Shown here is a 124-nucleotide RNA sequence from Corynebacterium kalinowskii, a member of the family "atpB RNA". It scores 118 bits against the family's covariance model. By type it is a cis-regulatory element.
RNA sequence: GCAGGUUCACUUUGAUGAUGUGCGACGGAGUCCAAAGUGAAUCGGGACAGAUUUUUAGACCUCCAUCGCACCGCUUUUCCGAAAAAGCGGCCCGAACACGGGAGAGAACGCUGAGCGUUACAAC
Numbered sequence: 001g002c003a004g005g006u007u008c009a010c011u012u013u014g015a016u017g018a019u020g021u022g023c024g025a026c027g028g029a030g031u032c033c034a035a036a037g038u039g040a041a042u043c044g045g046g047a048c049a050g051a052u053u054u055u056u057a058g059a060c061c062u063c064c065a066u067c068g069c070a071c072c073g074c075u076u077u078u079c080c081g082a083a084a085a086a087g088c089g090g091c092c093c094g095a096a097c098a099c100g101g102g103a104g105a106g107a108a109c110g111c112u113g114a115g116c117g118u119u120a121c122a123a124c
Stems, first nucleotide, its partner, number of pairs: 002045001004043009071090008